Description
SAM (S-adenosyl methionine) riboswitch aptamer: a 114-nucleotide sequence from Umezawaea tangerina. Taxonomically the source falls in Umezawaea (Bacteria, Bacillati, Actinomycetes, Pseudonocardiales). A search with the family's covariance model found it, with a score of 93 bits.
RNA sequence: GGUCAUGAGCGCCAGCGCGAAGCCCGUGCUAGCUGGCCGGCAACCCUCCUCCGCGGUGGGGUGCCCACGGUGAGGACCUGGCCCGGCGCCACCGCGUUCGGGCAAGCGCGGGCC
Numbered sequence: 001g002g003u004c005a006u007g008a009g010c011g012c013c014a015g016c017g018c019g020a021a022g023c024c025c026g027u028g029c030u031a032g033c034u035g036g037c038c039g040g041c042a043a044c045c046c047u048c049c050u051c052c053g054c055g056g057u058g059g060g061g062u063g064c065c066c067a068c069g070g071u072g073a074g075g076a077c078c079u080g081g082c083c084c085g086g087c088g089c090c091a092c093c094g095c096g097u098u099c100g101g102g103c104a105a106g107c108g109c110g111g112g113c114c
Stems, first nucleotide, its partner, number of pairs: 001078004009038001011037006021030002039065003044061003048056002081103005086097004